Rfam assigns this 53-nucleotide RNA from Parasphingopyxis lamellibrachiae to the family "serC leader". The match comes from Rfam's covariance-model search (48 bits). Rfam links the family to the GO term regulation of gene expression. Taxonomically the source falls in Parasphingopyxis (Bacteria, Pseudomonadati, Pseudomonadota, Parasphingopyxidaceae). The base pairs follow the family's consensus structure.
[Rfam]
RNA sequence: CGCCGGGCCACGCUGCCCCAACGCAGCGCUAACUCUCUGUGAGGAGAGACGAU
Numbered sequence: 001c002g003c004c005g006g007g008c009c010a011c012g013c014u015g016c017c018c019c020a021a022c023g024c025a026g027c028g029c030u031a032a033c034u035c036u037c038u039g040u041g042a043g044g045a046g047a048g049a050c051g052a053u
Base pairs, nucleotide, nucleotide: 011028012027013026014025015024016023033048034047035046036045037044038043